[Rfam]
RNA sequence: ACGACCCAUUUCUCGGGGGGUCGUGAAAUCAGUCACGCCGAGUACGGUUGUACGGAGCUUGCCGUCACCGCGGCAGCUAAGCCGACAGCCGUCGCACUCGAGGGAGCCCUUAUAUG
Numbered sequence: 001a002c003g004a005c006c007c008a009u010u011u012c013u014c015g016g017g018g019g020g021u022c023g024u025g026a027a028a029u030c031a032g033u034c035a036c037g038c039c040g041a042g043u044a045c046g047g048u049u050g051u052a053c054g055g056a057g058c059u060u061g062c063c064g065u066c067a068c069c070g071c072g073g074c075a076g077c078u079a080a081g082c083c084g085a086c087a088g089c090c091g092u093c094g095c096a097c098u099c100g101a102g103g104g105a106g107c108c109c110u111u112a113u114a115u116g
Stems, first nucleotide, its partner, number of pairs: 056078004062073004081095002084093003